[Rfam]
RNA sequence: CGUGCACACAAAACCCAAAGAUUAUUAUUCUGUGUAAUCUUGUCUGAUGUGCACACAGCAACAGGACUUUGUCACCUUUCAGGAGCUUAUGUGCCCAUGAAAUUUCUACAAAGUUCUACACUU
Numbered sequence: 001c002g003u004g005c006a007c008a009c010a011a012a013a014c015c016c017a018a019a020g021a022u023u024a025u026u027a028u029u030c031u032g033u034g035u036a037a038u039c040u041u042g043u044c045u046g047a048u049g050u051g052c053a054c055a056c057a058g059c060a061a062c063a064g065g066a067c068u069u070u071g072u073c074a075c076c077u078u079u080c081a082g083g084a085g086c087u088u089a090u091g092u093g094c095c096c097a098u099g100a101a102a103u104u105u106c107u108a109c110a111a112a113g114u115u116c117u118a119c120a121c122u123u
Stems, first nucleotide, its partner, number of pairs: 002054007020039006064116007077102005083096001085094002
A member of the RNA family "Small nucleolar RNA SNORA68" from Aquarana catesbeiana, 123 nucleotides long. About the family: U68 is a member of the H/ACA class of small nucleolar RNAs (snoRNAs) which act as guides in the the modification of uridines to pseudouridines. Gene Ontology terms of the family: RNA processing and nucleolus.